[Rfam]
RNA: MIR9563 microRNA precursor family
Organism: Brassica napus
RNA sequence: GGAAUAUAAGAAACUGUCUGUUAACUUUUAACUAAAAAAGCUAAGAACCGGUUCUUAGUUUUUUUAGUUAAAAAUUAAGAGACGGUUUCUUAUAUUCC
Dot-bracket structure: (((((((((((((((((((.((((.((((((((((((((.(((((((....))))))).)))))))))))))).)))).)))))))))))))))))))